[Rfam]
RNA sequence: AUAAUGAUACUUCUGACCGUUCAGGCUGCCACAGUAAAAGGACAGCGGGUGAAAUUCCCAUGA
Numbered sequence: 001a002u003a004a005u006g007a008u009a010c011u012u013c014u015g016a017c018c019g020u021u022c023a024g025g026c027u028g029c030c031a032c033a034g035u036a037a038a039a040g041g042a043c044a045g046c047g048g049g050u051g052a053a054a055u056u057c058c059c060a061u062g063a
Stems, first nucleotide, its partner, number of pairs: 012060001013024004026045003030041001047059003
RNA: pemK RNA